The family of this 48-nucleotide RNA from Urbifossiella limnaea is "Acido-Lenti-1 RNA". It is annotated as a small RNA.
[Rfam]
RNA sequence: CCCAGGGUUUAUACACCCUGGGCUAUUGACUGCCGCCCCUCCGGGGCU
Number, nucleotide and partner (000 for none) at each position: 001c022002c021003c020004a019005g018006g017007g016008u015009u000010u000011a000012u000013a000014c000015a008016c007017c006018c005019u004020g003021g002022g001023c000024u000025a000026u000027u000028g000029a000030c000031u000032g000033c000034c000035g047036c046037c045038c044039c043040u000041c000042c000043g039044g038045g037046g036047c035048u000